[Rfam]
RNA sequence: AAAUGAAAGCAGAAGCACCCGCUUCUCGCCUUACGCGAAUAUCUCGCUGGGCUAGAUAGUUAAUGACUGAUCUUUUCGAUGAGUCGAACUACGCGCGGGUUCGUAAAGAACUCGUUUUUUUAUUCGCUU
Numbered sequence: 001a002a003a004u005g006a007a008a009g010c011a012g013a014a015g016c017a018c019c020c021g022c023u024u025c026u027c028g029c030c031u032u033a034c035g036c037g038a039a040u041a042u043c044u045c046g047c048u049g050g051g052c053u054a055g056a057u058a059g060u061u062a063a064u065g066a067c068u069g070a071u072c073u074u075u076u077c078g079a080u081g082a083g084u085c086g087a088a089c090u091a092c093g094c095g096c097g098g099g100u101u102c103g104u105a106a107a108g109a110a111c112u113c114g115u116u117u118u119u120u121u122a123u124u125c126g127c128u129u
Base pairs, nucleotide, nucleotide: 011026012025013024014023015022016021028052029051030050035047036046037045038044095115096114097113098112099111100110101109102108